[Rfam]
RNA sequence: AGGGGCGGCCCUCCUUGGGCGUUUCCUCCCUGAACUUGGCCCCGCCAGCUCUGGCUGGCGGGGCCUCUUUACUUUGGCGC
Numbered sequence: 001a002g003g004g005g006c007g008g009c010c011c012u013c014c015u016u017g018g019g020c021g022u023u024u025c026c027u028c029c030c031u032g033a034a035c036u037u038g039g040c041c042c043c044g045c046c047a048g049c050u051c052u053g054g055c056u057g058g059c060g061g062g063g064c065c066u067c068u069u070u071a072c073u074u075u076g077g078c079g080c
Base pairs, nucleotide, nucleotide: 008020009019010018011017038065039064040063041062042061043060044059045058046057047056048055